Annotation
This 114-nucleotide sequence from Paenibacillus sp. J45TS6 belongs to the Rfam family "Guanidine-I riboswitch aptamer". The source organism's lineage runs through Bacteria, Bacillota, Bacilli, Paenibacillaceae and Paenibacillus. Gene Ontology term of the family: regulation of gene expression. The pairing is the family consensus, mapped onto this sequence. This family represents a conserved RNA structure found upstream of the ykkC and yxkD genes in Bacillus subtilis and related genes in other bacteria. The function of this family is unclear although it has been suggested that it may function to switch on efflux pumps and detoxification systems in response to harmful environmental molecules. A search with the family's covariance model found it, with a score of 81 bits.
RNA sequence: AGAAACGUUUUCUAGGGUUCCGCAGAUGAGGUAAGAUGAUCUGGUCUGGUCCGAGGGAAAACGCACGAAUCUACUGGAUUCGUGUUAUCACGGAGGGACAAAAGCCCGGGAGAU
Dot-bracket structure: ......((((((..((...((((((((...........)))))..).)).))....))))))((((((((.......))))))))...(.[...(((.......))).)..]..
Numbered sequence: 001a002g003a004a005a006c007g008u009u010u011u012c013u014a015g016g017g018u019u020c021c022g023c024a025g026a027u028g029a030g031g032u033a034a035g036a037u038g039a040u041c042u043g044g045u046c047u048g049g050u051c052c053g054a055g056g057g058a059a060a061a062c063g064c065a066c067g068a069a070u071c072u073a074c075u076g077g078a079u080u081c082g083u084g085u086u087a088u089c090a091c092g093g094a095g096g097g098a099c100a101a102a103a104g105c106c107c108g109g110g111a112g113a114u
Stems, first nucleotide, its partner, number of pairs: 007062006015052002020049002022046001023043005063085008089109001091112001095107003